[Rfam]
RNA sequence: AACAUGGGGACCGCGAUCUCCCCAUGAGGCAGCAGCCAAAGCAUCGCGUCCACCCUCGUCCGGGACGCCUCCAUG
Numbered sequence: 001a002a003c004a005u006g007g008g009g010a011c012c013g014c015g016a017u018c019u020c021c022c023c024a025u026g027a028g029g030c031a032g033c034a035g036c037c038a039a040a041g042c043a044u045c046g047c048g049u050c051c052a053c054c055c056u057c058g059u060c061c062g063g064g065a066c067g068c069c070u071c072c073a074u075g
Stems, first nucleotide, its partner, number of pairs: 005024006046068006
RNA: chrB-a RNA
Organism: Sphingomonas sp. G-3-2-10